[Rfam]
RNA sequence: GUGUUUUCAUGGUAUUAGAUUUAAGGUUAAGAACCAUGGGGCUGUCGAGAUGACAGCCCCAUGGUUUCUUUUAU
Numbered sequence: 001g002u003g004u005u006u007u008c009a010u011g012g013u014a015u016u017a018g019a020u021u022u023a024a025g026g027u028u029a030a031g032a033a034c035c036a037u038g039g040g041g042c043u044g045u046c047g048a049g050a051u052g053a054c055a056g057c058c059c060c061a062u063g064g065u066u067u068c069u070u071u072u073a074u
Base pairs, nucleotide, nucleotide: 040058041057042056043055044054045053046052